RNA: Small nucleolar RNA ZL1
RNA sequence: ACAUGCAUGCAUGCAUGUGCAUUCAUGCAUGUAUGCAUGUGUAUUCAUGCAUGUAUGCAUGUGUAUGCAUGCAUGCAUGUGUAUGCAUGCAUGCAUGUGUAUGCAUGCAUGCAUGUAUGCAUGUGUAUGCAUGCAUGUAUGCAUAUGCAUUCAUGUAUGCAUAUGCAUUCAUGUAUGCAUAUGCAUGUAUGCA
Numbered sequence: 001a002c003a004u005g006c007a008u009g010c011a012u013g014c015a016u017g018u019g020c021a022u023u024c025a026u027g028c029a030u031g032u033a034u035g036c037a038u039g040u041g042u043a044u045u046c047a048u049g050c051a052u053g054u055a056u057g058c059a060u061g062u063g064u065a066u067g068c069a070u071g072c073a074u075g076c077a078u079g080u081g082u083a084u085g086c087a088u089g090c091a092u093g094c095a096u097g098u099g100u101a102u103g104c105a106u107g108c109a110u111g112c113a114u115g116u117a118u119g120c121a122u123g124u125g126u127a128u129g130c131a132u133g134c135a136u137g138u139a140u141g142c143a144u145a146u147g148c149a150u151u152c153a154u155g156u157a158u159g160c161a162u163a164u165g166c167a168u169u170c171a172u173g174u175a176u177g178c179a180u181a182u183g184c185a186u187g188u189a190u191g192c193a
Stems, first nucleotide, its partner, number of pairs: 004193007014183003026171002029168003034105004039100001041098001043096002046093009063076005107120004123140006142165004147160004